[Rfam]
RNA sequence: GCCCGCGUGGCCUAAUGGAUAAGGCACCGGACUCCGGAACCGGGAAUGGGGGUUCAAGUCCCCCCGCGGGCU
Numbered sequence: 001g002c003c004c005g006c007g008u009g010g011c012c013u014a015a016u017g018g019a020u021a022a023g024g025c026a027c028c029g030g031a032c033u034c035c036g037g038a039a040c041c042g043g044g045a046a047u048g049g050g051g052g053u054u055c056a057a058g059u060c061c062c063c064c065c066g067c068g069g070g071c072u
Stems, first nucleotide, its partner, number of pairs: 001071007010025004027043004048064005

Description
The family of this 72-nucleotide sequence is "tRNA". Rfam links the family to the GO term triplet codon-amino acid adaptor activity. It is annotated as a transfer RNA. Transfer RNA (tRNA) molecules are approximately 80 nucleotides in length.